[Rfam]
RNA: Molybdenum/Tungsten riboswitch aptamer (Moco RNA motif)
RNA sequence: AAGCCCCGCAGUCUCCGAGUCUUAGCUUUCUAAAGCAUGCUUUGUUGCAUCAAUGCCAUGAAAAUAAGACCGGCAGGGUAUGAUGGGAAACCAUAAUGCCUCCCAUUGUGGAAAGGAGCGUGUCAGGCAGGAUG
Numbered sequence: 001a002a003g004c005c006c007c008g009c010a011g012u013c014u015c016c017g018a019g020u021c022u023u024a025g026c027u028u029u030c031u032a033a034a035g036c037a038u039g040c041u042u043u044g045u046u047g048c049a050u051c052a053a054u055g056c057c058a059u060g061a062a063a064a065u066a067a068g069a070c071c072g073g074c075a076g077g078g079u080a081u082g083a084u085g086g087g088a089a090a091c092c093a094u095a096a097u098g099c100c101u102c103c104c105a106u107u108g109u110g111g112a113a114a115g116g117a118g119c120g121u122g123u124c125a126g127g128c129a130g131g132a133u134g
Base pairs, nucleotide, nucleotide: 003128004127013118014117015116016115019070020069021068022067023066024065027063028062029061030060035056036055037054076101077100078099079098080097081096083094084093085092086091102111103110